Rfam assigns this 108-nucleotide RNA sequence from Rhododendron williamsianum to the family "Small nucleolar RNA snoR100".
The match comes from Rfam's covariance-model search (83 bits).
The family's RNA type in Rfam is H/ACA-box small nucleolar RNA.
Pairs were carried over by alignment from the consensus structure, which was predicted with WAR.
Rfam 15.1 lists 1,851 matches to the family in 220 species.
NCBI's taxonomy places the organism under Eukaryota, Streptophyta, Euphyllophyta, Ericaceae, Rhododendron.
Nucleotides: 108
Stems, first nucleotide, its partner, number of pairs: 012025004040091001042089003050081001052079001054075002
Number, partner (000 for none) and nucleotide at each position: 001000c002000a003000a004000u005000g006000a007000a008000g009000g010000a011000a012025g013024c014023a015022u016000a017000g018000u019000a020000a021000u022015g023014u024013g025012c026000u027000c028000a029000u030000a031000a032000a033000u034000u035000g036000a037000a038000u039000u040091g041000g042089g043088u044087c045000u046000c047000u048000a049000g050081a051000c052079c053000u054075g055074c056000c057000c058000u059000c060000u061000c062000u063000g064000a065000u066000g067000c068000c069000a070000u071000u072000u073000a074055g075054c076000u077000u078000u079052g080000a081050u082000u083000u084000g085000g086000a087044g088043g089042c090000a091040u092000g093000g094000u095000u096000c097000c098000u099000u100000a101000g102000c103000a104000a105000a106000a107000u108000a